The family of this 214-nucleotide sequence from Qipengyuania algicida is "permuted transfer-messenger RNA".
The family's RNA type in Rfam is non-coding RNA gene.
The match comes from Rfam's covariance-model search (143 bits).
RNA sequence: GGCGAUAAACUGCUGCGUGCAAUAGGCACAACGGACCCGGGGGCAGUACCCGGCGGCUCCACCACAAAACCCGGAUUUUCCGGGGCUUAUGACGGGGCCGAACUAGGAUCGACGUGUGUUGAAAGACGUAGUUUUUGCUCGGGCUGAGUAACCCGUUCAAGGCUCAAAACCCACAAGUGCCAAUGACAAUGAAGCACUCGCUCUCGCUGCGUAA
Numbered sequence: 001g002g003c004g005a006u007a008a009a010c011u012g013c014u015g016c017g018u019g020c021a022a023u024a025g026g027c028a029c030a031a032c033g034g035a036c037c038c039g040g041g042g043g044c045a046g047u048a049c050c051c052g053g054c055g056g057c058u059c060c061a062c063c064a065c066a067a068a069a070c071c072c073g074g075a076u077u078u079u080c081c082g083g084g085g086c087u088u089a090u091g092a093c094g095g096g097g098c099c100g101a102a103c104u105a106g107g108a109u110c111g112a113c114g115u116g117u118g119u120u121g122a123a124a125g126a127c128g129u130a131g132u133u134u135u136u137g138c139u140c141g142g143g144c145u146g147a148g149u150a151a152c153c154c155g156u157u158c159a160a161g162g163c164u165c166a167a168a169a170c171c172c173a174c175a176a177g178u179g180c181c182a183a184u185g186a187c188a189a190u191g192a193a194g195c196a197c198u199c200g201c202u203c204u205c206g207c208u209g210c211g212u213a214a
Base pairs, nucleotide, nucleotide: 001139002138003137004136005135015129016128017127018126027118028117029116031115032114033113037053038052039051040050041049054100055099056098057097058096059095060094140155141154142153143152
Notes:
The family's consensus secondary structure is taken from published work.